[Rfam]
RNA sequence: UUUCCGAAACGGUAAACUUGGAAGAAAUUCCAGGGGCACAAAGCUGACGGACCCGAAAUGUUCAGGUAGCCGAGCUCCCGAA
Number, nucleotide and partner (000 for none) at each position: 001u000002u000003u000004c000005c000006g000007a000008a000009a000010c000011g000012g039013u038014a000015a000016a000017c034018u033019u032020g031021g030022a029023a000024g000025a000026a000027a000028u000029u022030c021031c020032a019033g018034g017035g000036g000037c000038a013039c012040a000041a000042a076043g075044c074045u073046g000047a000048c072049g071050g070051a067052c066053c065054c000055g000056a000057a000058a000059u000060g000061u000062u000063c000064a000065g053066g052067u051068a000069g000070c050071c049072g048073a045074g044075c043076u042077c000078c000079c000080g000081a000082a000
This 82-nucleotide RNA from Geomonas silvestris belongs to the Rfam family "c-di-GMP-I riboswitch aptamer". Taxonomically the source falls in Geomonas (Bacteria, Pseudomonadati, Geobacterales, Geobacteraceae). GEMM was predicted in a large-scale screen for bacterial structured RNA regulatory elements.